Rfam assigns this 82-nucleotide sequence from Afipia sp. P52-10 to the family "Makes More Granules Regulator RNA (mmgR)". By type it is a small RNA.
[Rfam]
RNA sequence: GGCCGCUGCCCUCCUUGGGCGUUUCCUCCCUAGACUAGAGGCCGCAGGUGCGAGAGCGCUUGCGGCCUUCUUUCUGUAGGAU
Number, nucleotide and partner (000 for none) at each position: 001g000002g000003c000004c000005g000006c000007u000008g020009c019010c018011c017012u000013c000014c000015u000016u000017g011018g010019g009020c008021g000022u000023u000024u000025c000026c000027u000028c000029c000030c000031u000032a000033g000034a000035c000036u000037a000038g000039a000040g067041g066042c065043c064044g063045c062046a061047g060048g059049u058050g057051c000052g000053a000054g000055a000056g000057c050058g049059c048060u047061u046062g045063c044064g043065g042066c041067c040068u000069u000070c000071u000072u000073u000074c000075u000076g000077u000078a000079g000080g000081a000082u000
A search with the family's covariance model found it, with a score of 63 bits. Clan: suhB sRNA clan. The source organism's lineage runs through Bacteria, Alphaproteobacteria, Hyphomicrobiales, Nitrobacteraceae and Afipia.